[Rfam]
RNA sequence: UAGUGUAUGGGCAUUCUCUUCCCGGUUCUUCCCGGAGUCAGGAAAAGCUGGGUUGAGAGGGCGAAAAAAAUUAACA
Numbered sequence: 001u002a003g004u005g006u007a008u009g010g011g012c013a014u015u016c017u018c019u020u021c022c023c024g025g026u027u028c029u030u031c032c033c034g035g036a037g038u039c040a041g042g043a044a045a046a047g048c049u050g051g052g053u054u055g056a057g058a059g060g061g062c063g064a065a066a067a068a069a070a071u072u073a074a075c076a
Base pairs, nucleotide, nucleotide: 014059015058016057017056018055021052022051023050024049025048029044030043031042032041034039
Shown here is a 76-nucleotide RNA from Microcebus murinus, a member of the family "mir-320 microRNA precursor family". Rfam 15.1 lists 659 matches to the family in 129 species. The base pairs follow the family's consensus structure, which was predicted with RNAalifold.